Rfam assigns this 120-nucleotide RNA from Rothia santali to the family "SAM (S-adenosyl methionine) riboswitch aptamer".
Rfam 15.1 lists 2,360 matches to the family in 1,305 species.
[Rfam]
RNA sequence: GAUCACGAGCACCGGUCUUUCGGCUCUGGCUGGCCGGUCGGCAACCCUUCCCGCUGUGAUGGGGUGCCCCAGAUGACGAUCCGGCCGUGGGCACAGUCCGCCCAUCGGCAAGCACGGCGC
Numbered sequence: 001g002a003u004c005a006c007g008a009g010c011a012c013c014g015g016u017c018u019u020u021c022g023g024c025u026c027u028g029g030c031u032g033g034c035c036g037g038u039c040g041g042c043a044a045c046c047c048u049u050c051c052c053g054c055u056g057u058g059a060u061g062g063g064g065u066g067c068c069c070c071a072g073a074u075g076a077c078g079a080u081c082c083g084g085c086c087g088u089g090g091g092c093a094c095a096g097u098c099c100g101c102c103c104a105u106c107g108g109c110a111a112g113c114a115c116g117g118c119g120c
Stems, first nucleotide, its partner, number of pairs: 001081004009039001011038006022031002040068003045064003049059002084109004088104005
Notes:
NCBI's taxonomy places the organism under Bacteria, Bacillati, Micrococcales, Micrococcaceae, Rothia.